RNA sequence: UACAUCCUUGCUUUGUUUCUUCGUAUAUCCCCGAUAAUGCGGUUCGGGAGUCUCUACCGGGUAACCGUAAAUUACCUGACUACGAAGGGUUUUUACCCUUUA
Numbered sequence: 001u002a003c004a005u006c007c008u009u010g011c012u013u014u015g016u017u018u019c020u021u022c023g024u025a026u027a028u029c030c031c032c033g034a035u036a037a038u039g040c041g042g043u044u045c046g047g048g049a050g051u052c053u054c055u056a057c058c059g060g061g062u063a064a065c066c067g068u069a070a071a072u073u074a075c076c077u078g079a080c081u082a083c084g085a086a087g088g089g090u091u092u093u094u095a096c097c098c099u100u101u102a
Base pairs, nucleotide, nucleotide: 018088019087020086021085022084023083024082025081030048031047032046033045034044058078059077060076061075062074063073064072
The family of this 102-nucleotide RNA from Clostridiales bacterium PH28_bin88 is "Purine riboswitch aptamer". A search with the family's covariance model found it, with a score of 81 bits. Lineage of the source: Bacteria > Bacillati > Bacillota > Clostridia > Eubacteriales. The family's consensus secondary structure is taken from published work.